[Rfam]
RNA sequence: GUGGAAUUGAGGUUCCUUUCCCCAAAUGAUCGAGUAUGAUUAUACUAUAUGUCCUCAUGUGUUUCUUCGGUACAGUAGAUUUCUCGAUCUCAUGCUUUGAUCUAC
Numbered sequence: 001g002u003g004g005a006a007u008u009g010a011g012g013u014u015c016c017u018u019u020c021c022c023c024a025a026a027u028g029a030u031c032g033a034g035u036a037u038g039a040u041u042a043u044a045c046u047a048u049a050u051g052u053c054c055u056c057a058u059g060u061g062u063u064u065c066u067u068c069g070g071u072a073c074a075g076u077a078g079a080u081u082u083c084u085c086g087a088u089c090u091c092a093u094g095c096u097u098u099g100a101u102c103u104a105c
Base pairs, nucleotide, nucleotide: 001105002104003103004102005101